Rfam assigns this 177-nucleotide RNA sequence from Orthohepacivirus hominis to the family "Hepatitis C virus (HCV) cis-acting replication element (CRE)". Rfam's curators put it in the seed alignment. For this family Rfam cites "Conserved RNA secondary structures and long-range interactions in hepatitis C viruses" (Fricke et al., RNA, 2015). By type it is a cis-regulatory element.

RNA sequence: CCGUUGCGUGGCGUGACUACCCUCGACUUGUCGGGGUGGUUUACGUCAGGCUACAGCGGGGGGGACAUUUAUCACAGCGUGUCCCGAGCUCGACCCCGCAUAUUACUCCUGUGCCUACUCCUACUCACCGUAGGGGUAGGCAUCUUUUCACUACCCGCUCGGUAGACGGGUAGCUUA
Numbered sequence: 001c002c003g004u005u006g007c008g009u010g011g012c013g014u015g016a017c018u019a020c021c022c023u024c025g026a027c028u029u030g031u032c033g034g035g036g037u038g039g040u041u042u043a044c045g046u047c048a049g050g051c052u053a054c055a056g057c058g059g060g061g062g063g064g065a066c067a068u069u070u071a072u073c074a075c076a077g078c079g080u081g082u083c084c085c086g087a088g089c090u091c092g093a094c095c096c097c098g099c100a101u102a103u104u105a106c107u108c109c110u111g112u113g114c115c116u117a118c119u120c121c122u123a124c125u126c127a128c129c130g131u132a133g134g135g136g137u138a139g140g141c142a143u144c145u146u147u148u149c150a151c152u153a154c155c156c157g158c159u160c161g162g163u164a165g166a167c168g169g170g171u172a173g174c175u176u177a
Stems, first nucleotide, its partner, number of pairs: 006051002009048005016041001018039001021036006056099006062085006112142013151173007159166001
Dot-bracket structure: .....((.(((((..(.(..((((((....))))))..).)..))))).))....((((((((((((............))))))........))))))............(((((((((((((.....)))))))))))))........(((((((.(......))))))))....